[Rfam]
RNA sequence: AAACAUGCUAGGAAAAGGAUAGGUAUUAUUUUUACAGCUAACAGAGAGGGAAGAAUUGCUGCGAACUUCCCAGUGAUGGAAAAUAAUACACCACCUUGGAGCCGUAUUGGGGAAAGUAGAGUAACCAAUACCGUCUACGCUGCGUUAAAGCGUCCAAAGCCAAUGAAGUAUUUCAUUGGGAAGUUGGGUGGAACCACGAGUAAACGCACUCGUCCCUUUA
Numbered sequence: 001a002a003a004c005a006u007g008c009u010a011g012g013a014a015a016a017g018g019a020u021a022g023g024u025a026u027u028a029u030u031u032u033u034a035c036a037g038c039u040a041a042c043a044g045a046g047a048g049g050g051a052a053g054a055a056u057u058g059c060u061g062c063g064a065a066c067u068u069c070c071c072a073g074u075g076a077u078g079g080a081a082a083a084u085a086a087u088a089c090a091c092c093a094c095c096u097u098g099g100a101g102c103c104g105u106a107u108u109g110g111g112g113a114a115a116g117u118a119g120a121g122u123a124a125c126c127a128a129u130a131c132c133g134u135c136u137a138c139g140c141u142g143c144g145u146u147a148a149a150g151c152g153u154c155c156a157a158a159g160c161c162a163a164u165g166a167a168g169u170a171u172u173u174c175a176u177u178g179g180g181a182a183g184u185u186g187g188g189u190g191g192a193a194c195c196a197c198g199a200g201u202a203a204a205c206g207c208a209c210u211c212g213u214c215c216c217u218u219u220a
Stems, first nucleotide, its partner, number of pairs: 007102002015097004026086006037074003048071006105130006132144003160179007186216003196213005
RNA: T-box leader